RNA sequence: UGCUCACGGGGAACAUUCAACGCUGUCGGUGAGUUUGUGCUACGAUCAAAACCAUCGACCGUUGACUGUACCCUGAGAGGUC
Numbered sequence: 001u002g003c004u005c006a007c008g009g010g011g012a013a014c015a016u017u018c019a020a021c022g023c024u025g026u027c028g029g030u031g032a033g034u035u036u037g038u039g040c041u042a043c044g045a046u047c048a049a050a051a052c053c054a055u056c057g058a059c060c061g062u063u064g065a066c067u068g069u070a071c072c073c074u075g076a077g078a079g080g081u082c
Base pairs, nucleotide, nucleotide: 002081003080004078005077007075008074014068015067017065018064019063020062021061022060025059026058027057028056029055030054031053033052034051035050036049
Shown here is an 82-nucleotide sequence from Oryzias latipes, a member of the family "mir-181 microRNA precursor family". The sequence is in the family's curated seed alignment. NCBI's taxonomy places the organism under Eukaryota, Metazoa, Gnathostomata, Clupeocephala, Oryzias.